Archaeal signal recognition particle RNA: a 312-nucleotide RNA sequence from Geoglobus ahangari. Taxonomically the source falls in Geoglobus (Archaea, Archaeoglobi, Archaeoglobales, Archaeoglobaceae). The family's RNA type in Rfam is non-coding RNA gene. Its Rfam clan is "SRP clan". The literature on the family includes a 2003 paper in Nucleic Acids Res by Rosenblad et al., "SRPDB: Signal Recognition Particle Database".
[Rfam]
RNA sequence: CGGUGGGCUAGGCCGGGGGGCUCGGCGUCCCCUGUGACCCGAAACCGUCGUCAUGCGGGGGCCGAAGCCGAAGGAAGGCCCGGAGGGCGGGAGGCGAAAGCCCCCGGCCUCGUAGAAUCUCCGUCCCGGAGGGCCGGCGGUCACGGCCGGGCUUCCCGGAGGGGAUGUCCGCCGUGUUUGCCGGGGGAACCGGCCCAGGCCCGGAAGGGAGCAGGCUAACCCCGGACGUUCGGCGCUUCCGGGGGUGCGGAGAGGAUGGGGCCGGGGGAGAUAACCUCCCGUCCGAAGGGUCGACCGGAGGCGCGCCCACCA
Numbered sequence: 001c002g003g004u005g006g007g008c009u010a011g012g013c014c015g016g017g018g019g020g021c022u023c024g025g026c027g028u029c030c031c032c033u034g035u036g037a038c039c040c041g042a043a044a045c046c047g048u049c050g051u052c053a054u055g056c057g058g059g060g061g062c063c064g065a066a067g068c069c070g071a072a073g074g075a076a077g078g079c080c081c082g083g084a085g086g087g088c089g090g091g092a093g094g095c096g097a098a099a100g101c102c103c104c105c106g107g108c109c110u111c112g113u114a115g116a117a118u119c120u121c122c123g124u125c126c127c128g129g130a131g132g133g134c135c136g137g138c139g140g141u142c143a144c145g146g147c148c149g150g151g152c153u154u155c156c157c158g159g160a161g162g163g164g165a166u167g168u169c170c171g172c173c174g175u176g177u178u179u180g181c182c183g184g185g186g187g188a189a190c191c192g193g194c195c196c197a198g199g200c201c202c203g204g205a206a207g208g209g210a211g212c213a214g215g216c217u218a219a220c221c222c223c224g225g226a227c228g229u230u231c232g233g234c235g236c237u238u239c240c241g242g243g244g245g246u247g248c249g250g251a252g253a254g255g256a257u258g259g260g261g262c263c264g265g266g267g268g269a270g271a272u273a274a275c276c277u278c279c280c281g282u283c284c285g286a287a288g289g290g291u292c293g294a295c296c297g298g299a300g301g302c303g304c305g306c307c308c309a310c311c312a
Stems, first nucleotide, its partner, number of pairs: 002311007011063004015033007038059004043054001067302003073296002077292005086283009101268013118253007125243008133234004137229003140178001142176005148171005154165004181225006192217004200209003